[Rfam]
RNA sequence: UAUAUUAUUACAUAUAACUCUUGUAUAAGCUCAUUAAUUGGAGUGAGCGUCUCGACCAGGCAACCGUAAUUGCCCCAGGCUACAAGAGGCCGCAAGAUCAGA
Numbered sequence: 001u002a003u004a005u006u007a008u009u010a011c012a013u014a015u016a017a018c019u020c021u022u023g024u025a026u027a028a029g030c031u032c033a034u035u036a037a038u039u040g041g042a043g044u045g046a047g048c049g050u051c052u053c054g055a056c057c058a059g060g061c062a063a064c065c066g067u068a069a070u071u072g073c074c075c076c077a078g079g080c081u082a083c084a085a086g087a088g089g090c091c092g093c094a095a096g097a098u099c100a101g102a
Stems, first nucleotide, its partner, number of pairs: 018088008029048007057078001059074005

A member of the RNA family "Purine riboswitch aptamer" from Cohnella fermenti, 102 nucleotides long. The source organism's lineage runs through Bacteria, Bacillati, Bacilli, Paenibacillaceae and Cohnella. The base pairs follow the family's consensus structure, which is taken from published work. The match comes from Rfam's covariance-model search (57 bits).